[Rfam]
RNA sequence: CAUAGAAUAAAGCUGAACCUAGAUAAACCUAGGACGGGGGACUAUUUCUUGGGGUGAAUCGCGUAGCGCACGCGUAGGGCUCACACUUUUGCCCGAAUCCGUCAACUAACCUCGUAAGCUAAGAAAGGUGUCAAA
Numbered sequence: 001c002a003u004a005g006a007a008u009a010a011a012g013c014u015g016a017a018c019c020u021a022g023a024u025a026a027a028c029c030u031a032g033g034a035c036g037g038g039g040g041a042c043u044a045u046u047u048c049u050u051g052g053g054g055u056g057a058a059u060c061g062c063g064u065a066g067c068g069c070a071c072g073c074g075u076a077g078g079g080c081u082c083a084c085a086c087u088u089u090u091g092c093c094c095g096a097a098u099c100c101g102u103c104a105a106c107u108a109a110c111c112u113c114g115u116a117a118g119c120u121a122a123g124a125a126a127g128g129u130g131u132c133a134a135a
Stems, first nucleotide, its partner, number of pairs: 011120004018033005034115006042051001052100003060074004077094004
The record is a 135-nucleotide sequence from Desulfitobacterium dichloroeliminans, which matches "c-di-AMP riboswitch aptamer (ydaO/yuaA leader)" in Rfam.
Taxonomically the source falls in Desulfitobacterium dichloroeliminans (Bacteria, Bacillota, Eubacteriales, Desulfitobacteriaceae).